[Rfam]
Nucleotides: 098
Stems, first nucleotide, its partner, number of pairs: 021081005029047006056074005
Number, partner (000 for none) and nucleotide at each position: 001000a002000c003000u004000a005000g006000c007000a008000a009000u010000u011000a012000a013000a014000u015000a016000u017000g018000a019000a020000c021081c022080u023079g024078u025077a026000u027000a028000a029047c030046c031045u032044c033043a034042g035000a036000a037000u038000a039000u040000g041000g042034c043033u044032g045031a046030g047029g048000g049000u050000c051000u052000c053000u054000a055000c056074c057073a058072g059071g060070a061000a062000c063000c064000u065000u066000a067000a068000a069000a070060u071059c072058c073057u074056g075000a076000u077025u078024a079023c080022a081021g082000a083000a084000a085000a086000u087000g088000a089000a090000u091000c092000u093000c094000a095000u096000u097000u098000u
Background: The family of this 98-nucleotide sequence from Alkalihalobacillus trypoxylicola is "Purine riboswitch aptamer". Taxonomically the source falls in Alkalihalobacillus (Bacteria, Bacillati, Bacilli, Caryophanales). Gene Ontology term of the family: purine nucleobase biosynthetic process. A search with the family's covariance model found it, with a score of 66 bits. Pairs were carried over by alignment from the consensus structure, which is taken from published work.